[Rfam]
RNA sequence: CAGAUAUUACCACUUACCCUUCGUAUAUAUUCAACAAUUGGGUUGAACGUUUCUACUGGAAACCGUAAUUUCCAACUACGAAGAAUGCCUUUUGCGGG
Numbered sequence: 001c002a003g004a005u006a007u008u009a010c011c012a013c014u015u016a017c018c019c020u021u022c023g024u025a026u027a028u029a030u031u032c033a034a035c036a037a038u039u040g041g042g043u044u045g046a047a048c049g050u051u052u053c054u055a056c057u058g059g060a061a062a063c064c065g066u067a068a069u070u071u072c073c074a075a076c077u078a079c080g081a082a083g084a085a086u087g088c089c090u091u092u093u094g095c096g097g098g
Stems, first nucleotide, its partner, number of pairs: 019083007030047006057074006
RNA: Purine riboswitch aptamer
Organism: Marinococcus luteus